[Rfam]
Nucleotides: 093
Base pairs, nucleotide, nucleotide: 012037013036017032018031019030020029021028022027040087041086042085043084045083046082047081048078049077050076055072056071057070058069
Number, partner (000 for none) and nucleotide at each position: 001000c002000c003000u004000c005000g006000a007000a008000a009000a010000a011000g012037g013036c014000a015000c016000a017032c018031u019030u020029a021028u022027u023000g024000a025000a026000a027022g028021a029020u030019a031018a032017g033000g034000u035000c036013g037012c038000a039000a040087a041086g042085c043084u044000a045083u046082g047081a048078g049077u050076c051000u052000a053000c054000g055072g056071c057070a058069u059000a060000g061000u062000a063000u064000u065000u066000a067000u068000g069058a070057u071056g072055c073000u074000a075000u076050g077049a078048u079000g080000g081047u082046c083045a084043g085042g086041u087040u088000a089000c090000c091000g092000a093000a
A member of the RNA family "c-di-GMP-I riboswitch aptamer" from Halobacteroides halobius, 93 nucleotides long.
The base pairs follow the family's consensus structure, which is taken from published work.
GEMM was predicted in a large-scale screen for bacterial structured RNA regulatory elements.